[Rfam]
RNA sequence: AGAUGUGAGGGCAAUCUGGCCGUGACAUCUGUCACCUCACUGAUCGCCAGAGUUGAUCUGGCUGGCCAGGCGGGUGUCCCCUUCCUCUCUCACCGCUCCUUGUGCGUCCCUCCUGAAGCUGCAUGCUCAGUCGAAGAGGACGACUUUCCCCUGUAGAGGAGAGGACCGUUCUUCGGUCAAGGGUAUAUGAGUAGUUCUAGUGCUCCCCUGCUAGAACCUCCAAACAAGCUCUCGAGGUCUAUUUGUAGGAGAACGUAGGGUAGCCAAGUUUCCAAGACUCCAGACACAUCCAAAUGGGGCACUGCAUGUAGCAGUCUGAGCUCUU
Numbered sequence: 001a002g003a004u005g006u007g008a009g010g011g012c013a014a015u016c017u018g019g020c021c022g023u024g025a026c027a028u029c030u031g032u033c034a035c036c037u038c039a040c041u042g043a044u045c046g047c048c049a050g051a052g053u054u055g056a057u058c059u060g061g062c063u064g065g066c067c068a069g070g071c072g073g074g075u076g077u078c079c080c081c082u083u084c085c086u087c088u089c090u091c092a093c094c095g096c097u098c099c100u101u102g103u104g105c106g107u108c109c110c111u112c113c114u115g116a117a118g119c120u121g122c123a124u125g126c127u128c129a130g131u132c133g134a135a136g137a138g139g140a141c142g143a144c145u146u147u148c149c150c151c152u153g154u155a156g157a158g159g160a161g162a163g164g165a166c167c168g169u170u171c172u173u174c175g176g177u178c179a180a181g182g183g184u185a186u187a188u189g190a191g192u193a194g195u196u197c198u199a200g201u202g203c204u205c206c207c208c209u210g211c212u213a214g215a216a217c218c219u220c221c222a223a224a225c226a227a228g229c230u231c232u233c234g235a236g237g238u239c240u241a242u243u244u245g246u247a248g249g250a251g252a253a254c255g256u257a258g259g260g261u262a263g264c265c266a267a268g269u270u271u272c273c274a275a276g277a278c279u280c281c282a283g284a285c286a287c288a289u290c291c292a293a294a295u296g297g298g299g300c301a302c303u304g305c306a307u308g309u310a311g312c313a314g315u316c317u318g319a320g321c322u323c324u325u
Base pairs, nucleotide, nucleotide: 002098003097005093006092007091008090009089010088011087014083018081019080024078025077026076027075028074029073030072031071032070033069035065036064037061038060039059042058043057044056045055046053047052107164108163109159110158111157112156113130114129115128116127118126119125131153133151138149139148140147194269195268196267203263204262206260207259208258209257210256211255218251219250220249221248224246225245226244227243228242294325296322297321300318301315302314303313304312305311
7SK RNA: a 325-nucleotide RNA sequence from Rousettus aegyptiacus.
Pairs were carried over by alignment from the consensus structure, which is taken from published work.
Its Rfam clan is "7SK clan".
A search with the family's covariance model found it, with a score of 289 bits.
For this family Rfam cites "Transcription: surprising role for an elusive small nuclear RNA" (Blencowe, Curr Biol, 2002).
From the family's description: 7SK was discovered as an abundant small nuclear RNA in the mid-70s but a possible function has only recently been suggested.